Shown here is a 77-nucleotide sequence from Parnassius apollo, a member of the family "Mammalian CPEB3 ribozyme".
The match comes from Rfam's covariance-model search (39 bits).
Lineage of the source: Eukaryota > Allotriocarida > Amphiesmenoptera > Glossata > Parnassius.
[Rfam]
RNA sequence: GCCGAUUAUUCGGGGGUCAUUGUAAAAGCGUGCUCGCCACGACCCCCGCCAGCCCUUUUUAGGGAUGCAAUUCUACA
Numbered sequence: 001g002c003c004g005a006u007u008a009u010u011c012g013g014g015g016g017u018c019a020u021u022g023u024a025a026a027a028g029c030g031u032g033c034u035c036g037c038c039a040c041g042a043c044c045c046c047c048g049c050c051a052g053c054c055c056u057u058u059u060u061a062g063g064g065a066u067g068c069a070a071u072u073c074u075a076c077a
Stems, first nucleotide, its partner, number of pairs: 013046006021077004026072002028040001030038001050067002053064004